[Rfam]
RNA sequence: GUUAAAACUCGAAAUCAAUCAAACUCGGUCAAACUCGUAAAAUCGAUCUGAUUUUACCGAUUUUAACUGAGUUUGACCGAGUUUGAUCGAUUUCGAGUUUUAAC
Numbered sequence: 001g002u003u004a005a006a007a008c009u010c011g012a013a014a015u016c017a018a019u020c021a022a023a024c025u026c027g028g029u030c031a032a033a034c035u036c037g038u039a040a041a042a043u044c045g046a047u048c049u050g051a052u053u054u055u056a057c058c059g060a061u062u063u064u065a066a067c068u069g070a071g072u073u074u075g076a077c078c079g080a081g082u083u084u085g086a087u088c089g090a091u092u093u094c095g096a097g098u099u100u101u102a103a104c
Stems, first nucleotide, its partner, number of pairs: 001104016018087019037067002039064007
RNA: MIR6440 microRNA precursor family
Organism: Populus trichocarpa